[Rfam]
RNA: DUF3800-VIII RNA
RNA sequence: CAAGCCCUGCCGGGACCGAAGCUUCUAGUUCCACUAGGAGUACUUAUGUAGGUUUCGGUGGGGCUUU
Numbered sequence: 001c002a003a004g005c006c007c008u009g010c011c012g013g014g015a016c017c018g019a020a021g022c023u024u025c026u027a028g029u030u031c032c033a034c035u036a037g038g039a040g041u042a043c044u045u046a047u048g049u050a051g052g053u054u055u056c057g058g059u060g061g062g063g064c065u066u067u
Stems, first nucleotide, its partner, number of pairs: 002066012015053003021041009